[Rfam]
RNA: FMN riboswitch aptamer (RFN element)
RNA sequence: AAUGAUCUUCAGGGCAGGGUGAAAUUCCCUACCGGCGGUAUAGCCCGCGAGCCUUUUUAGGUAUGAUCCGGUUUGAUUCCGGAGCCGACAGUAAAGUCUGGAUGAAAGAAGAUAUAU
Number, nucleotide and partner (000 for none) at each position: 001a000002a000003u000004g000005a113006u112007c111008u110009u109010c108011a000012g000013g000014g000015c000016a000017g029018g028019g027020u000021g000022a000023a000024a000025u000026u000027c019028c018029c017030u000031a097032c096033c087034g086035g048036c047037g046038g045039u000040a000041u000042a000043g085044c084045c038046c037047g036048c035049g000050a000051g000052c000053c000054u000055u000056u000057u000058u000059a000060g000061g000062u000063a000064u000065g000066a000067u083068c082069c081070g080071g079072u000073u000074u000075g000076a000077u000078u000079c071080c070081g069082g068083a067084g044085c043086c034087g033088a000089c100090a099091g098092u000093a000094a000095a000096g032097u031098c091099u090100g089101g000102a000103u000104g000105a000106a000107a000108g010109a009110a008111g007112a006113u005114a000115u000116a000117u000